This 87-nucleotide sequence from Myotis brandtii belongs to the Rfam family "mir-9195 microRNA precursor family". A search with the family's covariance model found it, with a score of 93 bits. The source organism's lineage runs through Eukaryota, Sarcopterygii, Tetrapoda, Laurasiatheria and Myotis. Pairs were carried over by alignment from the consensus structure, which was predicted with RNAalifold.
RNA sequence: AGAGGCCCUCUGUGGCCAGGGUGGAAUGCUUGCCUCGUAGCCGGAGCAAUAAAGCAAGCAUUCUGCCAGGCUGCUCACAUUGCCCGC
Numbered sequence: 001a002g003a004g005g006c007c008c009u010c011u012g013u014g015g016c017c018a019g020g021g022u023g024g025a026a027u028g029c030u031u032g033c034c035u036c037g038u039a040g041c042c043g044g045a046g047c048a049a050u051a052a053a054g055c056a057a058g059c060a061u062u063c064u065g066c067c068a069g070g071c072u073g074c075u076c077a078c079a080u081u082g083c084c085c086g087c
Stems, first nucleotide, its partner, number of pairs: 004084003012074006020067014037050002040047002